[Rfam]
RNA: Lysine riboswitch aptamer
Nucleotides: 179
Stems, first nucleotide, its partner, number of pairs: 007173005016078009032063007082114003086109007115141002118138008143164007
Number, partner (000 for none) and nucleotide at each position: 001000u002000a003000a004000u005000a006000a007173g008172g009171u010170a011169g012000a013000g014000g015000u016078g017077c018076a019075g020074u021073a022072u023071u024070u025000a026000a027000g028000a029000g030000u031000a032063c033062u034061a035060u036059u037058a038057c039000a040000g041000a042000g043000g044000u045000a046000a047000g048000c049000a050000c051000u052000g053000u054000g055000a056000a057038g058037u059036a060035a061034u062033a063032g064000g065000a066000a067000a068000g069000g070024a071023a072022a073021u074020a075019u076018u077017g078016c079000c080000g081000a082114a083113g084112u085000a086109u087108a088107u089106a090105a091104c092103u093000g094000a095000u096000g097000c098000u099000u100000u101000a102000a103092g104091g105090u106089u107088a108087u109086a110000g111000a112084g113083c114082u115141g116140g117000g118138g119137u120136u121135a122134u123133g124132c125131a126000g127000a128000a129000u130000a131125u132124g133123u134122a135121u136120a137119a138118c139000a140116c141115u142000g143164u144163c145162a146161c147160a148159a149158a150000g151000g152000u153000g154000u155000g156000a157000u158149u159148u160147u161146g162145u163144g164143g165000u166000g167000a168000g169011c170010u171009a172008u173007c174000a175000u176000u177000c178000a179000u